A member of the RNA family "Small nucleolar RNA SNORD113/SNORD114 family" from Fukomys damarensis, 74 nucleotides long. It is annotated as a C/D-box small nucleolar RNA. The family is grouped with related families in Rfam's "SNORD74 clan". It scores 40 bits against the family's covariance model. The imprinted human domain at 14q32 contains two clusters of tandemly repeated small nucleolar RNAs named 14q(I) and 14q(II) snoRNAs.

RNA sequence: UGGGCCAGUGAUGAAGUUGGAGGGUGUCUAAAGAAAACGUUUUGAUUAGAGCCACCUGGAACGCUGAGGUCCAU
Numbered sequence: 001u002g003g004g005c006c007a008g009u010g011a012u013g014a015a016g017u018u019g020g021a022g023g024g025u026g027u028c029u030a031a032a033g034a035a036a037a038c039g040u041u042u043u044g045a046u047u048a049g050a051g052c053c054a055c056c057u058g059g060a061a062c063g064c065u066g067a068g069g070u071c072c073a074u
Stems, first nucleotide, its partner, number of pairs: 002072005